[Rfam]
RNA: ALIL pseudoknot
RNA sequence: CGCAUAUUUCGCUGCGGCGGCGCUCGACCGCGUUCGGCGGGAAAACGGGGCCCCACCCCCGUUUUCUGAUCCGCCUUACUCCGCAAAUGAUCGCGUUUCUCGACGAUCACCGUGGCGUCUUUGGUGUCGGGCCGAUCUGCCGGGUUCUGGGGAUCGCACCA
Number, nucleotide and partner (000 for none) at each position: 001c000002g000003c000004a000005u000006a000007u000008u000009u000010c000011g000012c000013u000014g000015c000016g075017g074018c073019g072020g071021c000022g000023c000024u000025c000026g000027a000028c000029c000030g000031c000032g000033u000034u000035c000036g000037g000038c000039g000040g000041g000042a000043a000044a000045a000046c000047g000048g000049g000050g000051c000052c000053c000054c000055a000056c000057c000058c000059c000060c000061g000062u000063u000064u000065u000066c000067u000068g000069a000070u000071c020072c019073g018074c017075c016076u000077u000078a000079c000080u000081c000082c000083g000084c000085a000086a000087a000088u000089g000090a000091u000092c000093g000094c000095g000096u000097u000098u000099c000100u000101c000102g000103a000104c000105g000106a000107u000108c000109a000110c000111c000112g000113u000114g000115g000116c000117g000118u000119c000120u000121u000122u161123g160124g159125u158126g157127u000128c000129g000130g000131g000132c000133c156134g155135a000136u153137c152138u151139g000140c149141c000142g147143g000144g000145u000146u000147c142148u000149g140150g000151g138152g137153a136154u000155c134156g133157c126158a125159c124160c123161a122